[Rfam]
RNA: Small nucleolar RNA Z103
Organism: Papaver nudicaule
RNA sequence: AUAGAUAUGAUUAUCCUUUCCCCAGUUGAUCGACCAAGACUAUAAUGUGCGUUUUGUUUAAGUUUCUUUCUCAACAGAAGGGGUUUUCCAAGCCAGUACUUUGAUCCAU
Numbered sequence: 001a002u003a004g005a006u007a008u009g010a011u012u013a014u015c016c017u018u019u020c021c022c023c024a025g026u027u028g029a030u031c032g033a034c035c036a037a038g039a040c041u042a043u044a045a046u047g048u049g050c051g052u053u054u055u056g057u058u059u060a061a062g063u064u065u066c067u068u069u070c071u072c073a074a075c076a077g078a079a080g081g082g083g084u085u086u087u088c089c090a091a092g093c094c095a096g097u098a099c100u101u102u103g104a105u106c107c108a109u
Stems, first nucleotide, its partner, number of pairs: 001109002004106002